The record is a 75-nucleotide sequence from Caballeronia concitans, which matches "Burkholderia sRNA 54" in Rfam. It scores 60 bits against the family's covariance model. Gene Ontology term of the family: bacterial biofilm matrix.
RNA sequence: CUUUCUCUCAGGUUCUGGCACGGCCCCUCGGAUUGGCCAGAACUUUCAAGCCGGCUCUCGAAGCCGGCUUUUUUU
Numbered sequence: 001c002u003u004u005c006u007c008u009c010a011g012g013u014u015c016u017g018g019c020a021c022g023g024c025c026c027c028u029c030g031g032a033u034u035g036g037c038c039a040g041a042a043c044u045u046u047c048a049a050g051c052c053g054g055c056u057c058u059c060g061a062a063g064c065c066g067g068c069u070u071u072u073u074u075u
Stems, first nucleotide, its partner, number of pairs: 010045010024031002050068007